[Rfam]
RNA sequence: CUCAACUGUCCUCGAGUGAGGUAGAGAGGUGUUAUUGCGUCACCACGACAACAUCAGUUUGACUUGAC
Dot-bracket structure: .((((......((((((((.((...(..(((............)))..).)).))).))))).)))).
RNA: mir-2816 microRNA precursor family